[Rfam]
RNA sequence: CAUCCAUCGAGAUCGGCUGAGGGAAAGGCCCUUUGAAGCCGAGGCAACCUGGACAUCCGUCCAAGGUGCCAAUUCCUGCGGGGGCGCAUGCCCGCCGCGCAGAUGGUUG
Numbered sequence: 001c002a003u004c005c006a007u008c009g010a011g012a013u014c015g016g017c018u019g020a021g022g023g024a025a026a027g028g029c030c031c032u033u034u035g036a037a038g039c040c041g042a043g044g045c046a047a048c049c050u051g052g053a054c055a056u057c058c059g060u061c062c063a064a065g066g067u068g069c070c071a072a073u074u075c076c077u078g079c080g081g082g083g084g085c086g087c088a089u090g091c092c093c094g095c096c097g098c099g100c101a102g103a104u105g106g107u108u109g
Base pairs, nucleotide, nucleotide: 001109002108004106005105006104007103008102013042014041015040016039017038021031022030023029026077027076028075043070044069045068046067048066049065050063051062052061053060074101079097080096081095083093084092
RNA: SAM riboswitch aptamer (S box leader)